[Rfam]
RNA sequence: UGGGAGAUCACGCCGAAUCGGUGCCUUCGACGGUACCGAACCGGGGACCCAGUUUCCUUUGGGGUGAAUCCCUCCCAGUAGCCGGCCAGUGGCCGGCUCGCGGGAGGGUAGGGCUACUUCCUGGCCCGAAUCCGUCAGCUAACUCGGUAGGCGUCGAGGAGGAAAGGU
Numbered sequence: 001u002g003g004g005a006g007a008u009c010a011c012g013c014c015g016a017a018u019c020g021g022u023g024c025c026u027u028c029g030a031c032g033g034u035a036c037c038g039a040a041c042c043g044g045g046g047a048c049c050c051a052g053u054u055u056c057c058u059u060u061g062g063g064g065u066g067a068a069u070c071c072c073u074c075c076c077a078g079u080a081g082c083c084g085g086c087c088a089g090u091g092g093c094c095g096g097c098u099c100g101c102g103g104g105a106g107g108g109u110a111g112g113g114c115u116a117c118u119u120c121c122u123g124g125c126c127c128g129a130a131u132c133c134g135u136c137a138g139c140u141a142a143c144u145c146g147g148u149a150g151g152c153g154u155c156g157a158g159g160a161g162g163a164a165a166g167g168u
Stems, first nucleotide, its partner, number of pairs: 011153004018039008040148006050061002062133003070108007111127004
The family of this 168-nucleotide RNA sequence is "c-di-AMP riboswitch aptamer (ydaO/yuaA leader)".